Shown here is an 88-nucleotide RNA sequence from Sporomusa silvacetica, a member of the family "c-di-GMP-I riboswitch aptamer".
The base pairs follow the family's consensus structure, which is taken from published work.
From the family's description: GEMM was predicted in a large-scale screen for bacterial structured RNA regulatory elements.
The source organism's lineage runs through Bacteria, Bacillota, Selenomonadales, Sporomusa and Sporomusa silvacetica.
It scores 66 bits against the family's covariance model.
RNA sequence: AGAAUAUUUAGGCAUACUUGCCGAAAGGCAACGACGCAAAGCUAUGGGUCUAAAGGCCGUUAACGCCUAUGAUUGCCAGGUCGCAAAU
Numbered sequence: 001a002g003a004a005u006a007u008u009u010a011g012g013c014a015u016a017c018u019u020g021c022c023g024a025a026a027g028g029c030a031a032c033g034a035c036g037c038a039a040a041g042c043u044a045u046g047g048g049u050c051u052a053a054a055g056g057c058c059g060u061u062a063a064c065g066c067c068u069a070u071g072a073u074u075g076c077c078a079g080g081u082c083g084c085a086a087a088u
Stems, first nucleotide, its partner, number of pairs: 012037002018031005041081003045078003048073003055067003